Singlet oxygen resistance RNA X: an 81-nucleotide sequence from Yoonia sediminilitoris.
SorX (RSs2461)like SorY is a singlet oxygen induced sRNA that counteracts oxidative stress by targeting mRNA for a transporter in Rhodobacter. It also has an impact on resistance against organic hydroperoxides. It targets SD sequence of potA mRNA via an aSD sequence. The aSD sequence and some neighbouring nucleotides are identical to the one of SorY (targets takP mRNA).
NCBI's taxonomy places the organism under Bacteria, Pseudomonadati, Pseudomonadota, Alphaproteobacteria, Yoonia.
A search with the family's covariance model found it, with a score of 52 bits.
The base pairs follow the family's consensus structure.
The family's RNA type in Rfam is small RNA.
[Rfam]
RNA sequence: AAUCGAAGGCGAUGAUGCUCAAACGCUCAUCAUCUUCACCUCCCUGUUGGACUUCGCCGGGCCUUGUGCCCGGCUUUUUUU
Numbered sequence: 001a002a003u004c005g006a007a008g009g010c011g012a013u014g015a016u017g018c019u020c021a022a023a024c025g026c027u028c029a030u031c032a033u034c035u036u037c038a039c040c041u042c043c044c045u046g047u048u049g050g051a052c053u054u055c056g057c058c059g060g061g062c063c064u065u066g067u068g069c070c071c072g073g074c075u076u077u078u079u080u081u
Stems, first nucleotide, its partner, number of pairs: 005037004056074007